[Rfam]
RNA sequence: AGCACUGCAUGGUAUCUGCAGCCAGCCGCUACUCCGGUUGGACUGUUCAUUAGUCAGUGCAAAAGCAACUUGGCAUAUGGCAUCGUUGGUUUCCAGGCUUCUUUGUGCCUGGAGUCCUGGUAUAUCUGUCGAGACAAAC
Numbered sequence: 001a002g003c004a005c006u007g008c009a010u011g012g013u014a015u016c017u018g019c020a021g022c023c024a025g026c027c028g029c030u031a032c033u034c035c036g037g038u039u040g041g042a043c044u045g046u047u048c049a050u051u052a053g054u055c056a057g058u059g060c061a062a063a064a065g066c067a068a069c070u071u072g073g074c075a076u077a078u079g080g081c082a083u084c085g086u087u088g089g090u091u092u093c094c095a096g097g098c099u100u101c102u103u104u105g106u107g108c109c110u111g112g113a114g115u116c117c118u119g120g121u122a123u124a125u126c127u128g129u130c131g132a133g134a135c136a137a138a139c
Stems, first nucleotide, its partner, number of pairs: 002060006014054002018046004023041001024039005064127002068123001070120004079109005

Rfam assigns this 139-nucleotide RNA from Hucho hucho to the family "Small nucleolar RNA SNORA8".
A search with the family's covariance model found it, with a score of 63 bits.
ACA8 is a member of the H/ACA class of snoRNA that guide the sites of modification of uridines to pseudouridines.
Rfam classes the family as an H/ACA-box small nucleolar RNA.